[Rfam]
RNA sequence: CCUAAAGGCUAGGGGUGCCAACCAUAAGUUGGCUGAGAGAUAUUUGUUAGAAUUGAGACCCUUGAAACCUGAUGUGGUUAGUACCACCGUAGGGAAGCAAUGGGAUUUAAAC
Numbered sequence: 001c002c003u004a005a006a007g008g009c010u011a012g013g014g015g016u017g018c019c020a021a022c023c024a025u026a027a028g029u030u031g032g033c034u035g036a037g038a039g040a041u042a043u044u045u046g047u048u049a050g051a052a053u054u055g056a057g058a059c060c061c062u063u064g065a066a067a068c069c070u071g072a073u074g075u076g077g078u079u080a081g082u083a084c085c086a087c088c089g090u091a092g093g094g095a096a097g098c099a100a101u102g103g104g105a106u107u108u109a110a111a112c
Base pairs, nucleotide, nucleotide: 008098009097010096011062012061013060014059016056017033018032019031020030021029042053043052044051068093069092070091071090074087075086076085077084